[Rfam]
RNA sequence: UGUCUGGAAGUGAGAAUUGCAGGAAACUAAAUUGGCUGUUUCUGGAUAUCUUUGUCUAUGAUCAAUUUAGUUUCCUCCAAUAUCUCACAUCCGGCGU
Numbered sequence: 001u002g003u004c005u006g007g008a009a010g011u012g013a014g015a016a017u018u019g020c021a022g023g024a025a026a027c028u029a030a031a032u033u034g035g036c037u038g039u040u041u042c043u044g045g046a047u048a049u050c051u052u053u054g055u056c057u058a059u060g061a062u063c064a065a066u067u068u069a070g071u072u073u074c075c076u077c078c079a080a081u082a083u084c085u086c087a088c089a090u091c092c093g094g095c096g097u
Base pairs, nucleotide, nucleotide: 004094005093006092007091008090011087012086013085014084016081017080018079019078021076023074024073025072026071027070028069029068030067032065033064

The record is a 97-nucleotide RNA from Papaver nudicaule, which matches "MIR2275 microRNA precursor family" in Rfam. The organism belongs to Papaver, within Eukaryota. It scores 63 bits against the family's covariance model. The family's consensus secondary structure was predicted with RNAalifold. Its family is annotated with miRNA-mediated post-transcriptional gene silencing and RISC complex in the Gene Ontology.